A member of the RNA family "U1 spliceosomal RNA" from Pipistrellus kuhlii, 164 nucleotides long. The literature on the family includes a 1990 paper in Proc Natl Acad Sci U S A by Kretzner et al., "Saccharomyces cerevisiae U1 small nuclear RNA secondary structure contains both universal and yeast-specific domains". The match comes from Rfam's covariance-model search (114 bits). Its family is annotated with pre-mRNA 5'-splice site binding, mRNA 5'-splice site recognition and U1 snRNP in the Gene Ontology.
[Rfam]
RNA sequence: AUACUUGCCUGGCAGGGAAGAUACCAUGAUCACGAAGGUGGAAUUCCCAGGGUGAGGCUUAGCCAUUGCACUCCAGAUAUGCUGACCCCUGUGAUUUAUCCAAAUGUGGAAAACUUGACUGCAUAGUUUAUUGUAGUGGGGGAGUACAUUCAUAUCCCUCCCCC
Numbered sequence: 001a002u003a004c005u006u007g008c009c010u011g012g013c014a015g016g017g018a019a020g021a022u023a024c025c026a027u028g029a030u031c032a033c034g035a036a037g038g039u040g041g042a043a044u045u046c047c048c049a050g051g052g053u054g055a056g057g058c059u060u061a062g063c064c065a066u067u068g069c070a071c072u073c074c075a076g077a078u079a080u081g082c083u084g085a086c087c088c089c090u091g092u093g094a095u096u097u098a099u100c101c102a103a104a105u106g107u108g109g110a111a112a113a114c115u116u117g118a119c120u121g122c123a124u125a126g127u128u129u130a131u132u133g134u135a136g137u138g139g140g141g142g143a144g145u146a147c148a149u150u151c152a153u154a155u156c157c158c159u160c161c162c163c164c
Stems, first nucleotide, its partner, number of pairs: 012122004016048002019045002024041004049090004054086001056083003060079002063076001092117003095113001096111002099109002138163005144158001146155001148153001